[Rfam]
The record is an 83-nucleotide RNA sequence from Dipodomys ordii, which matches "mir-1343 microRNA precursor family" in Rfam. Rfam 15.1 lists 238 matches to the family in 131 species. Gene Ontology terms of the family: miRNA-mediated post-transcriptional gene silencing and RISC complex. Pairs were carried over by alignment from the consensus structure, which was predicted with RNAalifold.
RNA sequence: CUGGCGUCCGUGCUGGGGAGCUGCCCGCGGGGCGGGCUUCCACUCCGGCCCCUCUUGGGGUCCACACUCUCACUCCGAGCCCG
Numbered sequence: 001c002u003g004g005c006g007u008c009c010g011u012g013c014u015g016g017g018g019a020g021c022u023g024c025c026c027g028c029g030g031g032g033c034g035g036g037c038u039u040c041c042a043c044u045c046c047g048g049c050c051c052c053u054c055u056u057g058g059g060g061u062c063c064a065c066a067c068u069c070u071c072a073c074u075c076c077g078a079g080c081c082c083g
Base pairs, nucleotide, nucleotide: 003081004080005079007078008077010075012073015070016069017068018067020065023062025060026059028057029056030055031054034051035050036049037048038047